[Rfam]
RNA sequence: AGCUUUGCGCAGUAGCGGUAUCACAGCCAAUGAGGUUUAUCUAAGGCGCGAUCAUUGCGAAUUGAAAACUUUUCCCAAUACCCGGCUGUGAUGACUUGCAAUAUAGUCGGCUUUGGCAAUUUUUGACAGUCUCUACAGAGA
Numbered sequence: 001a002g003c004u005u006u007g008c009g010c011a012g013u014a015g016c017g018g019u020a021u022c023a024c025a026g027c028c029a030a031u032g033a034g035g036u037u038u039a040u041c042u043a044a045g046g047c048g049c050g051a052u053c054a055u056u057g058c059g060a061a062u063u064g065a066a067a068a069c070u071u072u073u074c075c076c077a078a079u080a081c082c083c084g085g086c087u088g089u090g091a092u093g094a095c096u097u098g099c100a101a102u103a104u105a106g107u108c109g110g111c112u113u114u115g116g117c118a119a120u121u122u123u124u125g126a127c128a129g130u131c132u133c134u135a136c137a138g139a140g141a
Stems, first nucleotide, its partner, number of pairs: 020052003024048001026047003034042002085117003088113001090111001092109005130141004
About this RNA: A member of the RNA family "U4 spliceosomal RNA" from Sapajus apella, 141 nucleotides long. The base pairs follow the family's consensus structure, which is taken from published work. By type it is a spliceosomal small nuclear RNA. About the family: U4 small nuclear RNA (U4 snRNA) is a component of the major U2-dependent spliceosome.